The record is an 85-nucleotide RNA sequence from Albula goreensis, which matches "Small nucleolar RNA SNORD11B" in Rfam.
The family has 37 seed sequences and 733 matches in Rfam 15.1.
Clan: SNORD11 clan.
Rfam links the family to the GO terms nucleolus and RNA processing.
By type it is a C/D-box small nucleolar RNA.
The literature on the family includes a 2006 paper in Nucleic Acids Res by Yang et al., "snoSeeker: an advanced computational package for screening of guide and orphan snoRNA genes in the human genome".
A search with the family's covariance model found it, with a score of 62 bits.

RNA sequence: UACAAGCAGUGAUGAUGUUGACAUACUGUCACAGCCCUGAACAUUCCAUGUGGGUUCUUAAGUCACUACCUCAUCUGAGCUUGUU
Numbered sequence: 001u002a003c004a005a006g007c008a009g010u011g012a013u014g015a016u017g018u019u020g021a022c023a024u025a026c027u028g029u030c031a032c033a034g035c036c037c038u039g040a041a042c043a044u045u046c047c048a049u050g051u052g053g054g055u056u057c058u059u060a061a062g063u064c065a066c067u068a069c070c071u072c073a074u075c076u077g078a079g080c081u082u083g084u085u
Stems, first nucleotide, its partner, number of pairs: 002084006